GA-cis RNA: an 87-nucleotide sequence. The base pairs follow the family's consensus structure, which is taken from published work. By type it is a small RNA.

[Rfam]
RNA sequence: AUGAGGUUGUGUCCAUGCAUCGAAGAUGCAUAUAGGAAUGACACCGACGAAAUGUCGCCGAACGAAUGUGAGGGGGCGAUACCAACA
Numbered sequence: 001a002u003g004a005g006g007u008u009g010u011g012u013c014c015a016u017g018c019a020u021c022g023a024a025g026a027u028g029c030a031u032a033u034a035g036g037a038a039u040g041a042c043a044c045c046g047a048c049g050a051a052a053u054g055u056c057g058c059c060g061a062a063c064g065a066a067u068g069u070g071a072g073g074g075g076g077c078g079a080u081a082c083c084a085a086c087a
Stems, first nucleotide, its partner, number of pairs: 009044005015031006054077003058073002062069002